The family of this 113-nucleotide sequence from Nicotiana tabacum is "Plastid-psbA-1 3UTR RNA". Rfam's curators write: Plastid psbA-1 is a non-coding RNA (ncRNA) present in plastids. It was identified in inverted repeat sequences in the 3 prime untranslate region (3UTR) of photosystem II quinone-binding protein (psbA). Rfam classes the family as a cis-regulatory element. For this family Rfam cites "Retrograde signaling in plants: A critical review focusing on the GUN pathway and beyond" (Richter et al., Plant Commun, 2023). NCBI's taxonomy places the organism under Eukaryota, Magnoliopsida, eudicotyledons, asterids, Nicotiana. The family is grouped with related families in Rfam's "Plastid-psbA 3UTR RNA clan".

RNA sequence: UCGAAGCUCCAUUUACAAAUGGAUAAGAUCCUAGUCAAGUCUAUAGGAGGUUUUGAAAAGAAAUGAGCAAUAAUCAUUUUUUUUAUUUUAAAAAGAAAUCCAUUUUAUCAUUU
Number, nucleotide and partner (000 for none) at each position: 001u000002c000003g000004a000005a000006g000007c000008u023009c022010c021011a020012u019013u000014u000015a000016c000017a000018a000019a012020u011021g010022g009023a008024u000025a000026a000027g000028a000029u000030c000031c000032u000033a000034g000035u000036c000037a000038a000039g000040u000041c000042u000043a000044u000045a000046g000047g000048a000049g000050g000051u000052u000053u000054u000055g000056a000057a000058a000059a000060g000061a113062a112063a111064u110065g109066a108067g000068c000069a106070a105071u000072a103073a000074u000075c000076a099077u098078u000079u096080u095081u094082u093083u092084u000085a000086u000087u000088u000089u000090a000091a000092a083093a082094a081095g080096a079097a000098a077099u076100c000101c000102a000103u072104u000105u070106u069107a000108u066109c065110a064111u063112u062113u061
A search with the family's covariance model found it, with a score of 68 bits.